[Rfam]
Rfam assigns this 381-nucleotide RNA sequence from Pristimantibacillus lignocellulolyticus to the family "glmS glucosamine-6-phosphate activated ribozyme aptamer". About the family: This entry contains a glucosamine-6-phosphate activated ribozyme that is found in the mRNA for GlmS. GlmS is an enzyme that uses fructose-6-phosphate and glutamine to generate glucosamine-6-phosphate. The ribozyme catalyses self cleavage of the glmS mRNA that is thought to regulate GlmS activity. Pairs were carried over by alignment from the consensus structure, which is taken from published work.
RNA sequence: ACAAAAACUCAAGCGCCAGAGCUUAAUGAGGUAGAGGUAAGUUCAAAAAAUGGACUUUGAUAACGAUGAUUACGCUAACGUAGCGUAGUCGACGUCGAAUAUGAAACGAACUUGGAAAGUACGGUUCGCGUGUACCAGUAACGUACACUUGCGUUUCCUCCUUUCACAAGUAGCGCUCCAUCUUCUCGGUUCUGAAAGCCUACCUUUUGAACGUUCAUUGUAAUAGUUGUUCAAAAAAUGGACUUACUUUUAACUAUUAAGCUGACGAGGUAAAGGUGUUCGAAAUUUCGGCGGGGACCUUUCGGUAACUACAGACAACCGUAAGCUAAUUUGCAAACCAAUUGGGCGACUGAUUGAACAAACGAAUUGCUGUCUGACUAU
Numbered sequence: 001a002c003a004a005a006a007a008c009u010c011a012a013g014c015g016c017c018a019g020a021g022c023u024u025a026a027u028g029a030g031g032u033a034g035a036g037g038u039a040a041g042u043u044c045a046a047a048a049a050a051u052g053g054a055c056u057u058u059g060a061u062a063a064c065g066a067u068g069a070u071u072a073c074g075c076u077a078a079c080g081u082a083g084c085g086u087a088g089u090c091g092a093c094g095u096c097g098a099a100u101a102u103g104a105a106a107c108g109a110a111c112u113u114g115g116a117a118a119g120u121a122c123g124g125u126u127c128g129c130g131u132g133u134a135c136c137a138g139u140a141a142c143g144u145a146c147a148c149u150u151g152c153g154u155u156u157c158c159u160c161c162u163u164u165c166a167c168a169a170g171u172a173g174c175g176c177u178c179c180a181u182c183u184u185c186u187c188g189g190u191u192c193u194g195a196a197a198g199c200c201u202a203c204c205u206u207u208u209g210a211a212c213g214u215u216c217a218u219u220g221u222a223a224u225a226g227u228u229g230u231u232c233a234a235a236a237a238a239u240g241g242a243c244u245u246a247c248u249u250u251u252a253a254c255u256a257u258u259a260a261g262c263u264g265a266c267g268a269g270g271u272a273a274a275g276g277u278g279u280u281c282g283a284a285a286u287u288u289c290g291g292c293g294g295g296g297a298c299c300u301u302u303c304g305g306u307a308a309c310u311a312c313a314g315a316c317a318a319c320c321g322u323a324a325g326c327u328a329a330u331u332u333g334c335a336a337a338c339c340a341a342u343u344g345g346g347c348g349a350c351u352g353a354u355u356g357a358a359c360a361a362a363c364g365a366a367u368u369g370c371u372g373u374c375u376g377a378c379u380a381u
Stems, first nucleotide, its partner, number of pairs: 020263008272302005280291004303321004325371001327369005339356007